The family of this 108-nucleotide RNA sequence from Porphyromonas sp. COT-108 OH1349 is "Bacteroidales small SRP".
RNA sequence: UUGCGCUGGGUAAGUCCUAUACGGCCAGCUCCUAUUGAACUCCCCCAGGGCUUGAUCGCAGCAAGGGUAGAUGGUUGUAGCGGCGCGAUGUAGUAAGCUUACCCGCCU
Numbered sequence: 001u002u003g004c005g006c007u008g009g010g011u012a013a014g015u016c017c018u019a020u021a022c023g024g025c026c027a028g029c030u031c032c033u034a035u036u037g038a039a040c041u042c043c044c045c046c047a048g049g050g051c052u053u054g055a056u057c058g059c060a061g062c063a064a065g066g067g068u069a070g071a072u073g074g075u076u077g078u079a080g081c082g083g084c085g086c087g088a089u090g091u092a093g094u095a096a097g098c099u100u101a102c103c104c105g106c107c108u
Base pairs, nucleotide, nucleotide: 008104009103010102011101012100013099014098015097017093018092019091020090021089022087023086024084025083
Dot-bracket structure: .......((((((((.(((((((((.........................................................)).)).)))))...))))))))....
The family's consensus secondary structure is taken from published work.